Rfam assigns this 101-nucleotide RNA sequence from Vibrio agarilyticus to the family "Glycine riboswitch aptamer". A search with the family's covariance model found it, with a score of 62 bits. Rfam 15.1 lists 9,425 matches to the family in 5,228 species.
RNA sequence: CCUCUGGAGAGAGCCAAGCAAUUGGCCGCCGAAGGAGCAAGAUCUAUCUAAUUCUUUUAUAAGAAUUUAUUGGUCGAAUCUCUCAGGCAAAAGGACAGAGG
Numbered sequence: 001c002c003u004c005u006g007g008a009g010a011g012a013g014c015c016a017a018g019c020a021a022u023u024g025g026c027c028g029c030c031g032a033a034g035g036a037g038c039a040a041g042a043u044c045u046a047u048c049u050a051a052u053u054c055u056u057u058u059a060u061a062a063g064a065a066u067u068u069a070u071u072g073g074u075c076g077a078a079u080c081u082c083u084c085a086g087g088c089a090a091a092a093g094g095a096c097a098g099a100g101g
Stems, first nucleotide, its partner, number of pairs: 001101006013026004028088003031084002035082003041075004